[Rfam]
The family of this 66-nucleotide RNA from Sarcophilus harrisii is "MAT2A 3'UTR stem loop F". The family has 26 seed sequences and 403 matches in Rfam 15.1. Rfam classes the family as a cis-regulatory element. The literature on the family includes a 2011 paper in Genome Res by Parker et al., "New families of human regulatory RNA structures identified by comparative analysis of vertebrate genomes". The base pairs follow the family's consensus structure, which is taken from published work. The match comes from Rfam's covariance-model search (66 bits).
RNA sequence: CAUGGAGGAAGCUGACCUAGCUGGUGUGGUAUAGAGAAGCCAACUUGUUUAUAUGUCUAGUCCAUG
Numbered sequence: 001c002a003u004g005g006a007g008g009a010a011g012c013u014g015a016c017c018u019a020g021c022u023g024g025u026g027u028g029g030u031a032u033a034g035a036g037a038a039g040c041c042a043a044c045u046u047g048u049u050u051a052u053a054u055g056u057c058u059a060g061u062c063c064a065u066g
Stems, first nucleotide, its partner, number of pairs: 001066006009058001011056002014049003019045002022042004026032002